[Rfam]
RNA sequence: UUCUCGCUCAAAGAAUCGCAUUCGAAGCACACGAACAGAAAAAUACCUUUACUGGUACUUUUCAAACAUCAUGCUUUGGGAGAAAGUCCCCGGACAACCCGUCUUCUCAUGAAGACGGGAUUGCGGAAACGCGCCGCCAUAGAAGCACUUUGCGGCUUCUCUUCUAUCAAUUCUUCGUUUCGAUUUCAUACACCCUUCUGCCGUUUGCACUGUCACGCGAUCGCUUCCAGAACUUGUCGUAUGGAUGGAAAAAGACCAUAUGGAUGAAGAUACGAGUCCGAGCUUCUUCUUGAUGUACUUUGAGGUCUGGAAGAGUGAUUGGUGAUGGGAGGUGGUAGGACUGUUCUUGGUUGAGAUGAGGGGUGCUAAUGGUAGGGGAGGCUUAUUCGUCGAGAUCGAUAGUUAUGCGAUUGCUUUCCUGCUCUUGAAAGGGAGGAGGAUGGUAACUCGAUGGGGCUUAUUCUUGAUGCGAGG
Number, nucleotide and partner (000 for none) at each position: 001u000002u474003c473004u472005c471006g470007c469008u467009c466010a465011a464012a000013g000014a412015a411016u410017c409018g408019c407020a000021u000022u080023c078024g077025a076026a075027g074028c073029a000030c000031a000032c000033g000034a000035a000036c000037a000038g063039a062040a061041a060042a059043a000044u057045a056046c055047c054048u000049u000050u000051a000052c000053u000054g047055g046056u045057a044058c000059u042060u041061u040062u039063c038064a000065a000066a000067c000068a000069u000070c000071a000072u000073g028074c027075u026076u025077u024078g023079g000080g022081a000082g000083a000084a459085a458086g457087u000088c456089c455090c454091c453092g000093g000094a000095c000096a000097a000098c000099c000100c000101g116102u115103c114104u113105u112106c111107u000108c000109a000110u000111g106112a105113a104114g103115a102116c101117g000118g000119g000120a000121u000122u000123g000124c000125g000126g000127a000128a000129a000130c000131g000132c000133g000134c000135c000136g000137c000138c000139a000140u000141a000142g000143a000144a000145g000146c000147a000148c000149u000150u000151u000152g000153c000154g000155g000156c000157u000158u000159c000160u000161c000162u000163u000164c000165u000166a000167u000168c000169a000170a000171u000172u000173c000174u000175u000176c000177g000178u000179u000180u000181c000182g000183a000184u000185u000186u000187c000188a000189u000190a000191c000192a000193c000194c000195c000196u000197u000198c000199u000200g000201c000202c000203g000204u000205u000206u000207g000208c000209a000210c000211u000212g000213u000214c000215a000216c000217g000218c000219g000220a000221u000222c000223g000224c000225u000226u000227c000228c000229a000230g000231a000232a000233c000234u000235u000236g000237u000238c000239g000240u000241a000242u000243g000244g000245a000246u000247g000248g000249a000250a000251a000252a000253a000254g000255a000256c000257c000258a000259u000260a000261u000262g000263g000264a000265u000266g000267a000268a000269g000270a000271u000272a000273c000274g000275a000276g000277u000278c000279c000280g384281a383282g382283c000284u000285u000286c380287u379288u378289c377290u376291u375292g000293a000294u000295g373296u372297a000298c000299u000300u000301u000302g000303a000304g000305g000306u363307c362308u361309g000310g000311a000312a000313g000314a000315g000316u000317g000318a000319u000320u000321g000322g000323u000324g000325a000326u000327g000328g000329g000330a000331g000332g000333u000334g000335g000336u000337a000338g000339g000340a000341c000342u000343g000344u000345u356346c355347u354348u353349g000350g000351u000352u000353g348354a347355g346356a345357u000358g000359a000360g000361g308362g307363g306364u000365g000366c000367u000368a000369a000370u000371g000372g296373u295374a000375g291376g290377g289378g288379a287380g286381g000382c282383u281384u280385a000386u000387u000388c000389g000390u000391c000392g000393a000394g000395a000396u000397c000398g000399a000400u000401a000402g000403u000404u000405a000406u000407g019408c018409g017410a016411u015412u014413g000414c443415u442416u000417u440418c439419c438420u000421g000422c000423u000424c000425u000426u000427g000428a000429a000430a000431g000432g000433g000434a000435g000436g000437a000438g419439g418440a417441u000442g415443g414444u000445a000446a000447c000448u000449c000450g000451a000452u000453g091454g090455g089456g088457c086458u085459u084460a000461u000462u000463c000464u011465u010466g009467a008468u000469g007470c006471g005472a004473g003474g002
RNase MRP: a 474-nucleotide sequence from Rutstroemia sp. NJR-2017a BBW. Taxonomically the source falls in Rutstroemia (Eukaryota, Opisthokonta, saccharomyceta, Rutstroemiaceae). Rfam describes the family as follows. RNase MRP is an enzymatically active ribonucleoprotein with two distinct roles in eukaryotes.